[Rfam]
RNA sequence: UCCCUCCAGAUCCCUUUCCCAUCAGAUCUGAAUACCGAUCUUGUGGUCGAAAAAGGAGGAAAAAUAAACUUCAGACUGGUCUCGGCCUCUUUGCCGGUGCAGCCCUGCUCUGAGAGGG
Number, nucleotide and partner (000 for none) at each position: 001u000002c000003c059004c058005u057006c056007c055008a000009g000010a000011u000012c000013c000014c000015u000016u000017u000018c000019c046020c045021a044022u000023c043024a000025g040026a039027u038028c037029u000030g000031a000032a000033u000034a000035c000036c000037g028038a027039u026040c025041u000042u000043g023044u021045g020046g019047u000048c000049g000050a000051a000052a000053a000054a000055g007056g006057a005058g004059g003060a000061a000062a000063a000064a000065u000066a000067a000068a000069c000070u000071u000072c000073a000074g000075a000076c107077u000078g105079g104080u000081c102082u101083c000084g000085g000086c000087c000088u000089c000090u000091u000092u000093g000094c000095c000096g000097g000098u000099g000100c000101a082102g081103c000104c079105c078106u000107g076108c000109u000110c000111u000112g000113a000114g000115a000116g000117g000118g000
Shown here is a 118-nucleotide sequence from Phoenicopterus ruber, a member of the family "Small nucleolar RNA SNORA61". Rfam's curators write: ACA61 is a member of the H/ACA class of snoRNA that guide the sites of modification of uridines to pseudouridines. Rfam classes the family as an H/ACA-box small nucleolar RNA. Rfam links the family to the GO terms RNA processing and nucleolus. NCBI's taxonomy places the organism under Eukaryota, Coelurosauria, Neognathae, Mirandornithes, Phoenicopterus ruber.